The record is an 88-nucleotide RNA from Clostridium cavendishii, which matches "tRNA" in Rfam. The organism belongs to Clostridium cavendishii, within Bacteria. It is annotated as a transfer RNA. A search with the family's covariance model found it, with a score of 54 bits. Pairs were carried over by alignment from the consensus structure, which is taken from published work.

[Rfam]
RNA sequence: GGAGAAAUACUCAAGUGGCUGAAGAGGCGCCCCUGCUAAGGGCGUAGGUCGGGUAACCGGCGCCCGGGUUCAAAUCCCGGUUUCUCCG
Numbered sequence: 001g002g003a004g005a006a007a008u009a010c011u012c013a014a015g016u017g018g019c020u021g022a023a024g025a026g027g028c029g030c031c032c033c034u035g036c037u038a039a040g041g042g043c044g045u046a047g048g049u050c051g052g053g054u055a056a057c058c059g060g061c062g063c064c065c066g067g068g069u070u071c072a073a074a075u076c077c078c079g080g081u082u083u084c085u086c087c088g
Stems, first nucleotide, its partner, number of pairs: 001087007010026003028044005064080005